[Rfam]
A member of the RNA family "Small nucleolar RNA Z102/R77" from Daucus carota, 83 nucleotides long.

RNA sequence: GAAGGAAAUGAGGAGUUUAGUUCUUAUUGACUAGAUUGCCGAAAUGAUGGCAACAAUGAUGUAUUAGCUCUAUCUGAUCCUUC
Numbered sequence: 001g002a003a004g005g006a007a008a009u010g011a012g013g014a015g016u017u018u019a020g021u022u023c024u025u026a027u028u029g030a031c032u033a034g035a036u037u038g039c040c041g042a043a044a045u046g047a048u049g050g051c052a053a054c055a056a057u058g059a060u061g062u063a064u065u066a067g068c069u070c071u072a073u074c075u076g077a078u079c080c081u082u083c
Stems, first nucleotide, its partner, number of pairs: 002082004034054001037052004
Dot-bracket structure: .((((............................(..((((........)))).)........................)))).
The family's consensus secondary structure was predicted with PFOLD. For this family Rfam cites "Identification of 66 box C/D snoRNAs in Arabidopsis thaliana: extensive gene duplications generated multiple isoforms predicting new ribosomal RNA 2'-O-methylation sites" (Barneche et al., J Mol Biol, 2001). The family is grouped with related families in Rfam's "SNORD44 clan". Its family is annotated with RNA processing and nucleolus in the Gene Ontology. It is annotated as a C/D-box small nucleolar RNA. Taxonomically the source falls in Daucus carota (Eukaryota, eudicotyledons, Pentapetalae, campanulids). A search with the family's covariance model found it, with a score of 66 bits.